[Rfam]
RNA: DUF805b RNA
RNA sequence: ACCGCGGUAGCCGAAAAGCGGAGAACACAGAGUAGGCU
Number, nucleotide and partner (000 for none) at each position: 001a000002c021003c020004g019005c018006g000007g000008u000009a000010g037011c036012c035013g000014a000015a000016a000017a000018g005019c004020g003021g002022a000023g000024a000025a000026c000027a000028c000029a000030g000031a000032g000033u000034a000035g012036g011037c010038u000